[Rfam]
This 89-nucleotide RNA from Elachura formosa belongs to the Rfam family "mir-2131 microRNA precursor family". NCBI's taxonomy places the organism under Eukaryota, Sauria, Dinosauria, Australaves, Elachura. The match comes from Rfam's covariance-model search (94 bits).
RNA sequence: UCUUGUGGCUUUCAUGCAGAAGUGCAUAGAAGCAGCUAUUUGCAGUUGAGAAGUUGGCAGUUACUGUUCUUCUGAUGGAGGCUGCUGGA
Numbered sequence: 001u002c003u004u005g006u007g008g009c010u011u012u013c014a015u016g017c018a019g020a021a022g023u024g025c026a027u028a029g030a031a032g033c034a035g036c037u038a039u040u041u042g043c044a045g046u047u048g049a050g051a052a053g054u055u056g057g058c059a060g061u062u063a064c065u066g067u068u069c070u071u072c073u074g075a076u077g078g079a080g081g082c083u084g085c086u087g088g089a
Stems, first nucleotide, its partner, number of pairs: 001089003005085011017074006026067004031062003035058004040053002